[Rfam]
RNA sequence: AAAGGAAGAAUAACGCCUUUCUUGUUCUAUCAAGAGGGCGUUAUUCUUCCUCUCUUU
Numbered sequence: 001a002a003a004g005g006a007a008g009a010a011u012a013a014c015g016c017c018u019u020u021c022u023u024g025u026u027c028u029a030u031c032a033a034g035a036g037g038g039c040g041u042u043a044u045u046c047u048u049c050c051u052c053u054c055u056u057u
Stems, first nucleotide, its partner, number of pairs: 001053001003051012019036006
RNA: Plastid-psbA-3 3UTR RNA
Organism: Hanabusaya asiatica